[Rfam]
RNA: Small nucleolar RNA SNORA70
Organism: Cricetulus griseus
RNA sequence: UUGCAGACAAUUAUGCCAACCAAGUUCUUUUCCUCAUGGGGAACUGGUGUGCAAGGCAAGGGCUGCAAACAGUGGCCUCUGCAGUAGUGUAUGCAGCCUACUGCUUGUAUGAGAUUUCCUAAGGGGUCUUGGAGACAACU
Numbered sequence: 001u002u003g004c005a006g007a008c009a010a011u012u013a014u015g016c017c018a019a020c021c022a023a024g025u026u027c028u029u030u031u032c033c034u035c036a037u038g039g040g041g042a043a044c045u046g047g048u049g050u051g052c053a054a055g056g057c058a059a060g061g062g063c064u065g066c067a068a069a070c071a072g073u074g075g076c077c078u079c080u081g082c083a084g085u086a087g088u089g090u091a092u093g094c095a096g097c098c099u100a101c102u103g104c105u106u107g108u109a110u111g112a113g114a115u116u117u118c119c120u121a122a123g124g125g126g127u128c129u130u131g132g133a134g135a136c137a138a139c140u
Base pairs, nucleotide, nucleotide: 002053003052004051005050019048020047021046022045025042026041027040028039084127085126095115097113099111